[Rfam]
RNA sequence: GUUGGUUAUGGAGACAUGAGACCUGUGACAGUUGGGGGCAAAAUCGUCGGCUCGCUGUGCGCGAUCGCGGGGGUUUUGACCAUCGCUCUGCCGGUUCCAGUAAUCGUGUCCAAC
Numbered sequence: 001g002u003u004g005g006u007u008a009u010g011g012a013g014a015c016a017u018g019a020g021a022c023c024u025g026u027g028a029c030a031g032u033u034g035g036g037g038g039c040a041a042a043a044u045c046g047u048c049g050g051c052u053c054g055c056u057g058u059g060c061g062c063g064a065u066c067g068c069g070g071g072g073g074u075u076u077u078g079a080c081c082a083u084c085g086c087u088c089u090g091c092c093g094g095u096u097c098c099a100g101u102a103a104u105c106g107u108g109u110c111c112a113a114c
Stems, first nucleotide, its partner, number of pairs: 001114002004111002007108005014101002018097003037077002040074001050062002